[Rfam]
RNA sequence: AAGCGUUCACCUCGUUCGCGAGGCGCAUUUCUGUCAGGCCAUGGAACGGGGACCUGGC
Numbered sequence: 001a002a003g004c005g006u007u008c009a010c011c012u013c014g015u016u017c018g019c020g021a022g023g024c025g026c027a028u029u030u031c032u033g034u035c036a037g038g039c040c041a042u043g044g045a046a047c048g049g050g051g052a053c054c055u056g057g058c
Stems, first nucleotide, its partner, number of pairs: 004048005010023005033058006039051002
A member of the RNA family "Glutamine-II riboswitch aptamer", 58 nucleotides long. The literature on the family includes a 2019 paper in Nucleic Acids Res by Huang et al., "Structure and ligand binding of the glutamine-II riboswitch". It is one of the family's seed sequences.